[Rfam]
This 83-nucleotide RNA from Actinomyces sp. 2119 belongs to the Rfam family "SAM riboswitch aptamer (S box leader)". The match comes from Rfam's covariance-model search (50 bits). Rfam's curators write: The SAM riboswitch is found upstream of a number of genes which code for proteins involved in methionine or cysteine biosynthesis in Gram-positive bacteria. The SAM riboswitch acts at the level of transcription termination control. The predicted structure consists of a complex stem-loop region followed by a single stem loop terminator region. An alternative and mutually exclusive form involves bases in the 3' segment of helix 1 with those in the 5' region of helix 5 to form a structure termed the anti-terminator form. This entry represents the conserved core of the complex structure involving helices 1-4.
RNA sequence: GUUCCAUCUAGAGUGGCUGAGAGACCUGGCUCCGUGACGCCGCAGCAACCCCCUCCGGGUGCUUCCGCCAGGACCGAUGGAGG
Number, nucleotide and partner (000 for none) at each position: 001g000002u082003u081004c080005c079006a078007u077008c076009u000010a000011g000012a000013g043014u042015g041016g040017c039018u000019g000020a000021g032022a031023g030024a000025c000026c071027u070028g069029g068030c023031u022032c021033c000034g000035u000036g000037a000038c000039g017040c016041c015042g014043c013044a063045g062046c061047a060048a000049c059050c058051c000052c000053c000054u000055c000056c000057g000058g050059g049060u047061g046062c045063u044064u000065c000066c000067g075068c029069c028070a027071g026072g000073a000074c000075c067076g008077a007078u006079g005080g004081a003082g002083g000